[Rfam]
RNA sequence: GAAUUAAUUAAGGGGCAACCCUUAACUGACCAGCUGGAGAAAAACCGCAAGGAACAAAUUCAGAGGGCAGAAAGUUUCGCGGGGGAUCGCUGAACGCGCGAAACGGGUGGCAUGGCGAUAGCGAGUCAACGACGUGCCUA
Numbered sequence: 001g002a003a004u005u006a007a008u009u010a011a012g013g014g015g016c017a018a019c020c021c022u023u024a025a026c027u028g029a030c031c032a033g034c035u036g037g038a039g040a041a042a043a044a045c046c047g048c049a050a051g052g053a054a055c056a057a058a059u060u061c062a063g064a065g066g067g068c069a070g071a072a073a074g075u076u077u078c079g080c081g082g083g084g085g086a087u088c089g090c091u092g093a094a095c096g097c098g099c100g101a102a103a104c105g106g107g108u109g110g111c112a113u114g115g116c117g118a119u120a121g122c123g124a125g126u127c128a129a130c131g132a133c134g135u136g137c138c139u140a
Base pairs, nucleotide, nucleotide: 008025009024010023011022012021013020014019026070027069028068030067031066034063035062036061037060038059045052046051074104075103076102077101078100079099080098081097087124088123089122090121091120109138110137111136112135113134114133116131117130

Rfam assigns this 140-nucleotide sequence to the family "IMES-2 RNA motif". On this family, see Weinberg et al., Nature 2009: "Exceptional structured noncoding RNAs revealed by bacterial metagenome analysis". Pairs were carried over by alignment from the consensus structure, which is taken from published work.